Shown here is an 87-nucleotide RNA from Yersinia mollaretii, a member of the family "nuoG RNA".

RNA sequence: GAAUUUUUGAUUAACGCUUGUAAAACGAACCGUUUCAAGGUCGCCGUAACAGCCAAUAAACGUGUUCAAUUACAAGCCACUUGGAAG
Numbered sequence: 001g002a003a004u005u006u007u008u009g010a011u012u013a014a015c016g017c018u019u020g021u022a023a024a025a026c027g028a029a030c031c032g033u034u035u036c037a038a039g040g041u042c043g044c045c046g047u048a049a050c051a052g053c054c055a056a057u058a059a060a061c062g063u064g065u066u067c068a069a070u071u072a073c074a075a076g077c078c079a080c081u082u083g084g085a086a087g
Stems, first nucleotide, its partner, number of pairs: 016077007
The source organism's lineage runs through Bacteria, Pseudomonadota, Enterobacterales, Yersiniaceae and Yersinia mollaretii.